[Rfam]
Lysine riboswitch aptamer: a 178-nucleotide sequence from Flexilinea flocculi. Rfam's curators write: Riboswitches are metabolite binding domains within certain messenger RNAs that serve as precision sensors for their corresponding targets. The family's consensus secondary structure is taken from published work. Taxonomically the source falls in Flexilinea (Bacteria, Bacillati, Anaerolineales, Anaerolineaceae).

RNA sequence: UGUACAGAUAGAGGCGCGAAAUUCAUCAGUAGCAUGACGGAACUGCUUAAACAGUGUAGAUGUUCAUGUGAAAGGGAAUUUUGCCGAAGCUGAGAUCGGUUUAAGAGUGAUUGAGGCUGGGCUUACGGAGAAUAUCCGAAAGACUGUCACAAAUUUUUUGUGGAGCGCUAUCGUUCGG
Numbered sequence: 001u002g003u004a005c006a007g008a009u010a011g012a013g014g015c016g017c018g019a020a021a022u023u024c025a026u027c028a029g030u031a032g033c034a035u036g037a038c039g040g041a042a043c044u045g046c047u048u049a050a051a052c053a054g055u056g057u058a059g060a061u062g063u064u065c066a067u068g069u070g071a072a073a074g075g076g077a078a079u080u081u082u083g084c085c086g087a088a089g090c091u092g093a094g095a096u097c098g099g100u101u102u103a104a105g106a107g108u109g110a111u112u113g114a115g116g117c118u119g120g121g122c123u124u125a126c127g128g129a130g131a132a133u134a135u136c137c138g139a140a141a142g143a144c145u146g147u148c149a150c151a152a153a154u155u156u157u158u159u160g161u162g163g164a165g166c167g168c169u170a171u172c173g174u175u176c177g178g
Stems, first nucleotide, its partner, number of pairs: 007172005016084009032069006038062002088118004094112005119145002122142003126138004147163007